[Rfam]
RNA sequence: UUGAGUUUCCUUUAUUUGAGUAUCCUGAAAACGGGCUUUUCAGCAUAAAGGAAAUCAGUUAUUUUUUAUUAACAAAUAGGAGUGCAUAGUGGCCCGUAUCGCAGGCAUUAACAUUCCUGAU
Number, nucleotide and partner (000 for none) at each position: 001u000002u000003g000004a000005g055006u054007u053008u052009c051010c050011u049012u048013u047014a000015u000016u000017u000018g000019a000020g000021u000022a000023u000024c105025c104026u103027g000028a000029a000030a000031a000032c096033g095034g094035g093036c000037u000038u000039u000040u120041c119042a118043g000044c000045a000046u000047a013048a012049a011050g010051g009052a008053a007054a006055u005056c000057a000058g000059u000060u000061a000062u000063u000064u000065u000066u000067u000068a000069u000070u000071a000072a000073c000074a000075a000076a000077u000078a000079g000080g000081a000082g000083u000084g000085c000086a000087u000088a000089g000090u000091g000092g000093c035094c034095c033096g032097u000098a000099u000100c000101g000102c000103a026104g025105g024106c000107a000108u000109u000110a000111a000112c000113a000114u000115u000116c000117c000118u042119g041120a040121u000
Background:
A member of the RNA family "Alpha operon ribosome binding site" from Frischella perrara, 121 nucleotides long. Rfam describes the family as follows. The bacterial alpha operon ribosome binding site is surrounded by this complex pseudoknotted structure. Translation of the mRNA produces 4 ribosomal protein products, one of which (S4) acts as a translational repressor by binding to the nested pseudoknot region. The mechanism of repression is thought to involve a conformational switch in the pseudoknot region and ribosome entrapment. A reference for the family is Schlax et al. (2001), "Translational repression of the Escherichia coli alpha operon mRNA: importance of an mRNA conformational switch and a ternary entrapment complex", J Biol Chem. Rfam classes the family as a cis-regulatory element. Taxonomically the source falls in Frischella (Bacteria, Pseudomonadota, Gammaproteobacteria, Orbaceae).